The record is a 65-nucleotide RNA from Ameyamaea chiangmaiensis, which matches "Fluoride riboswitch aptamer (crcB RNA motif)" in Rfam. Its family is annotated with response to fluoride and positive regulation of gene expression in the Gene Ontology.
RNA sequence: CGCCAUGAUGGGGAUGGGGUUCCCCCGAAACCGCCUGUAUAUGGGCUGAUGACUCCUGUCGAUCG
Numbered sequence: 001c002g003c004c005a006u007g008a009u010g011g012g013g014a015u016g017g018g019g020u021u022c023c024c025c026c027g028a029a030a031c032c033g034c035c036u037g038u039a040u041a042u043g044g045g046c047u048g049a050u051g052a053c054u055c056c057u058g059u060c061g062a063u064c065g
Stems, first nucleotide, its partner, number of pairs: 010026004016056006033046004